[Rfam]
RNA sequence: GGUUGCAAGUUUGAGGCCAAAGCAGAAGUGCUCAUCAGCAUGGCCCUGUCAGUUUAUAACAAAUCUGUGAAUUUGGCU
Numbered sequence: 001g002g003u004u005g006c007a008a009g010u011u012u013g014a015g016g017c018c019a020a021a022g023c024a025g026a027a028g029u030g031c032u033c034a035u036c037a038g039c040a041u042g043g044c045c046c047u048g049u050c051a052g053u054u055u056a057u058a059a060c061a062a063a064u065c066u067g068u069g070a071a072u073u074u075g076g077c078u
Stems, first nucleotide, its partner, number of pairs: 013046001015045004021078003025074003028041003050067003054063002
Mammalian CPEB3 ribozyme: a 78-nucleotide RNA from Crocodylus porosus. The family's consensus secondary structure is taken from published work.